Shown here is a 268-nucleotide RNA sequence from a Candidatus Hydrogenedentota bacterium, a member of the family "Bacterial large signal recognition particle RNA".
RNA sequence: CCGCGCUAGAUGGGGCGCUCCCGGUGCCCUGAACUCGAAACCCGGGUCAUGCGAGGUCGAAUUCCCGCCCGAGGGCGUUUUAUCCUUUAGUCAGGUUCGAGGCACGUGGUGUUGACGGCUGGGUCCUACUCAACGGGGUGCUGCCGAACCCGGUCAGGUCUUGACGGAAGCAGCCGUAGGUGGUUUUCCUCGUGUGCUGUAGGAGCGCCUGGCCCGAGCUAACGACCUCGAGGCCGUUCUGGGUACGCGUUCGACGGCGGGUGCGCGG
Numbered sequence: 001c002c003g004c005g006c007u008a009g010a011u012g013g014g015g016c017g018c019u020c021c022c023g024g025u026g027c028c029c030u031g032a033a034c035u036c037g038a039a040a041c042c043c044g045g046g047u048c049a050u051g052c053g054a055g056g057u058c059g060a061a062u063u064c065c066c067g068c069c070c071g072a073g074g075g076c077g078u079u080u081u082a083u084c085c086u087u088u089a090g091u092c093a094g095g096u097u098c099g100a101g102g103c104a105c106g107u108g109g110u111g112u113u114g115a116c117g118g119c120u121g122g123g124u125c126c127u128a129c130u131c132a133a134c135g136g137g138g139u140g141c142u143g144c145c146g147a148a149c150c151c152g153g154u155c156a157g158g159u160c161u162u163g164a165c166g167g168a169a170g171c172a173g174c175c176g177u178a179g180g181u182g183g184u185u186u187u188c189c190u191c192g193u194g195u196g197c198u199g200u201a202g203g204a205g206c207g208c209c210u211g212g213c214c215c216g217a218g219c220u221a222a223c224g225a226c227c228u229c230g231a232g233g234c235c236g237u238u239c240u241g242g243g244u245a246c247g248c249g250u251u252c253g254a255c256g257g258c259g260g261g262u263g264c265g266c267g268g
Stems, first nucleotide, its partner, number of pairs: 001268006009058003012030008034055004039050001064261006073252005081245005089237001094234001098230005106223002108220003117214008125203005131194002134192005140184006151176004159168003
About the family: The signal recognition particle (SRP) is a universally conserved ribonucleoprotein involved in the co-translational targeting of proteins to membranes. Rfam links the family to the GO terms SRP-dependent cotranslational protein targeting to membrane, signal sequence recognition and signal recognition particle, plasma membrane targeting. A search with the family's covariance model found it, with a score of 166 bits. The source organism's lineage runs through Bacteria, Pseudomonadati and Candidatus Hydrogenedentota.